A member of the RNA family "Plastid-rpl16 group II-D1 intron" from Carnegiea gigantea, 47 nucleotides long. Plastid-rpl16 is a non-coding RNA (ncRNA) recognised in plastids. On this family, see Richter et al., Plant Commun 2023: "Retrograde signaling in plants: A critical review focusing on the GUN pathway and beyond".
RNA sequence: AAGUGCCUCGGGCCAGUAAAGACUGAGAAGGUUAGCUCAAGAACAAA
Dot-bracket structure: ......((.((((.(((.............))).)))).))......
Numbered sequence: 001a002a003g004u005g006c007c008u009c010g011g012g013c014c015a016g017u018a019a020a021g022a023c024u025g026a027g028a029a030g031g032u033u034a035g036c037u038c039a040a041g042a043a044c045a046a047a
Stems, first nucleotide, its partner, number of pairs: 007041002010038004015033003